The family of this 110-nucleotide RNA sequence from Taxus chinensis is "Small nucleolar RNA snoR97".

RNA sequence: UCCAUUUAAUGAGAAAAUCUGGCUGAAAAACUCGGAAAUUAAAUGUGACGGUCAUCAGCUUCGUCUUUCGUGUCCACACAGGACAGGAGUUAAAUGCUGUCACAAAAUUU
Dot-bracket structure: ...........................................(((((((......((((((.((((............))))..))))))......)))))))......
The family has 7 seed sequences and 862 matches in Rfam 15.1.